[Rfam]
RNA sequence: GUGCAGGGUGCCUAGGGUUCCGCGCUGUCUUUACAGGGAACAGCGGUCUGGUCCGAGAGGUGCCGCCGGGGUGGGAGAAAUCCGCCCUGGUACACGGCGGGGUAAAAGCCCGGGAGAG
Numbered sequence: 001g002u003g004c005a006g007g008g009u010g011c012c013u014a015g016g017g018u019u020c021c022g023c024g025c026u027g028u029c030u031u032u033a034c035a036g037g038g039a040a041c042a043g044c045g046g047u048c049u050g051g052u053c054c055g056a057g058a059g060g061u062g063c064c065g066c067c068g069g070g071g072u073g074g075g076a077g078a079a080a081u082c083c084g085c086c087c088u089g090g091u092a093c094a095c096g097g098c099g100g101g102g103u104a105a106a107a108g109c110c111c112g113g114g115a116g117a118g
Stems, first nucleotide, its partner, number of pairs: 007064006015054002020051002022048001023045006065091010093113001095116001099111003
RNA: Guanidine-I riboswitch aptamer